[Rfam]
The family of this 306-nucleotide RNA from Actinidia chinensis is "Plant signal recognition particle RNA". The match comes from Rfam's covariance-model search (245 bits). NCBI's taxonomy places the organism under Eukaryota, eudicotyledons, Pentapetalae, Actinidiaceae, Actinidia chinensis. By type it is a non-coding RNA gene. The base pairs follow the family's consensus structure, which is taken from published work.
RNA sequence: GCCGGGCUUGGUAGCGCAAGCCUGUGACCCAAGCGGGGGCAUUACUGUGAUUGGACAUGGGCUGAGCCCGGAAGGUUGGACCUGCGGUUGCUAGAUUCUAGCCCGCCCGCUCCGAGUGGGGAGUUGGAUCAUGUGGCCCAUUCGAAAGUCUGGGUCUCGUGGUUCCUAAAGUGGAGGGCAAUGCGUGAGGCUGGUUUCACAGAGCAGCGACAACCUCCCGCUCUCUACGGUGGAAGGAUAACGGGCUGGUGCUGCCCAGGUCCAUAAACAGCCCAAUGGGCCAGCCCUCAUCGAACAGUCACAUUU
Number, nucleotide and partner (000 for none) at each position: 001g040002c039003c038004g023005g022006g021007c020008u019009u018010g017011g000012u000013a000014g000015c000016g000017c010018a009019a008020g007021c006022c005023u004024g000025u000026g000027a000028c037029c036030c035031a000032a000033g000034c000035g030036g029037g028038g003039g002040c001041a000042u000043u000044a305045c000046u303047g302048u301049g300050a299051u298052u297053g296054g000055a000056c293057a000058u290059g289060g288061g285062c284063u283064g282065a000066g000067c000068c279069c278070g277071g000072a000073a000074g273075g272076u271077u270078g263079g262080a261081c260082c259083u258084g257085c000086g255087g000088u254089u000090g252091c000092u251093a250094g000095a000096u000097u000098c249099u248100a247101g246102c245103c244104c243105g242106c000107c237108c236109g000110c000111u234112c233113c232114g231115a000116g228117u227118g226119g225120g224121g223122a222123g221124u220125u000126g165127g164128a163129u162130c161131a160132u159133g158134u000135g156136g155137c154138c153139c152140a151141u000142u000143c148144g000145a000146a000147a000148g143149u000150c000151u140152g139153g138154g137155u136156c135157u000158c133159g132160u131161g130162g129163u128164u127165c126166c171167u000168a000169a000170a000171g166172u000173g218174g217175a216176g215177g214178g000179c000180a000181a000182u000183g000184c209185g208186u207187g000188a000189g000190g000191c202192u201193g200194g000195u000196u000197u000198c000199a000200c193201a192202g191203a000204g000205c000206a000207g186208c185209g184210a000211c000212a000213a000214c177215c176216u175217c174218c173219c000220g124221c123222u122223c121224u120225c119226u118227a117228c116229g000230g000231u114232g113233g112234a111235a000236g108237g107238a000239u000240a000241a000242c105243g104244g103245g102246c101247u100248g099249g098250u093251g092252c090253u000254g088255c086256c000257c084258a083259g082260g081261u080262c079263c078264a000265u000266a000267a000268a000269c000270a077271g076272c075273c074274c000275a000276a000277u070278g069279g068280g000281c000282c064283a063284g062285c061286c000287c000288u060289c059290a058291u000292c000293g056294a000295a000296c053297a052298g051299u050300c049301a048302c047303a046304u000305u044306u000